[Rfam]
RNA: mir-30 microRNA precursor family
Organism: Oncorhynchus kisutch
RNA sequence: GCCAGGGGUGUAAACAUCCUACACUCUCAGCUGUGACAUCAUCGAGCUGGGAGAGGGGUGUUUACGCUUCUGGU
Numbered sequence: 001g002c003c004a005g006g007g008g009u010g011u012a013a014a015c016a017u018c019c020u021a022c023a024c025u026c027u028c029a030g031c032u033g034u035g036a037c038a039u040c041a042u043c044g045a046g047c048u049g050g051g052a053g054a055g056g057g058g059u060g061u062u063u064a065c066g067c068u069u070c071u072g073g074u
Stems, first nucleotide, its partner, number of pairs: 002073005008067013024053009